Nucleotides: 080
Base pairs, nucleotide, nucleotide: 006073007072009070010069011068014065015064016063017062018061021058022057023056025055026054027053028052029051
Number, partner (000 for none) and nucleotide at each position: 001000g002000g003000c004000c005000a006073g007072c008000a009070u010069c011068a012000a013000u014065u015064c016063c017062g018061u019000a020000g021058u022057g023056c024000a025055u026054u027053g028052c029051a030000g031000u032000g033000u034000a035000g036000a037000c038000c039000a040000u041000u042000g043000g044000a045000c046000g047000u048000a049000a050000c051029u052028g053027c054026a055025a056023g057022c058021a059000u060000u061018g062017u063016g064015g065014g066000a067000g068011u069010g070009a071000a072007g073006c074000c075000g076000u077000u078000c079000g080000a